Shown here is a 33-nucleotide RNA from Flavobacterium sp. KMS, a member of the family "DUF805b RNA". The family's consensus secondary structure is taken from published work.
RNA sequence: UAAAGGUAAGCUGAAAACUUUAUAGAGUAGGCA
Numbered sequence: 001u002a003a004a005g006g007u008a009a010g011c012u013g014a015a016a017a018c019u020u021u022a023u024a025g026a027g028u029a030g031g032c033a
Stems, first nucleotide, its partner, number of pairs: 002021004010032003
The organism belongs to Flavobacterium, within Bacteria.
The family is grouped with related families in Rfam's "DUF805 clan".